[Rfam]
RNA: c-di-GMP-I riboswitch aptamer
Organism: Cellulomonas flavigena
RNA sequence: AGCGACAAACGGCAAACCCGCCGCAAGGUGGGGACGCAAAGCCACGGGGCCCACGAGGUCAGCCGAGCUACCGAA
Numbered sequence: 001a002g003c004g005a006c007a008a009a010c011g012g013c014a015a016a017c018c019c020g021c022c023g024c025a026a027g028g029u030g031g032g033g034a035c036g037c038a039a040a041g042c043c044a045c046g047g048g049g050c051c052c053a054c055g056a057g058g059u060c061a062g063c064c065g066a067g068c069u070a071c072c073g074a075a
Stems, first nucleotide, its partner, number of pairs: 012037002017032006040069003045065003048060003